[Rfam]
RNA sequence: ACGCAGGAUUCAGACUAGAAUAUAGCUGUUAAGUGCUGUGUUGUCAUUCUCCCUGCUUAAAAUAAAGUUUUUUUCUUAACUAUACCUGUCUGCUAUCUGCUGUAGCAGCCAGGGAUGCUUGGUUUCAUACAU
Numbered sequence: 001a002c003g004c005a006g007g008a009u010u011c012a013g014a015c016u017a018g019a020a021u022a023u024a025g026c027u028g029u030u031a032a033g034u035g036c037u038g039u040g041u042u043g044u045c046a047u048u049c050u051c052c053c054u055g056c057u058u059a060a061a062a063u064a065a066a067g068u069u070u071u072u073u074u075c076u077u078a079a080c081u082a083u084a085c086c087u088g089u090c091u092g093c094u095a096u097c098u099g100c101u102g103u104a105g106c107a108g109c110c111a112g113g114g115a116u117g118c119u120u121g122g123u124u125u126c127a128u129a130c131a132u
Base pairs, nucleotide, nucleotide: 003056004055005054006053007052017044019042020041021040022039023038024037025036026035085113086112087111088110090108091107092106093105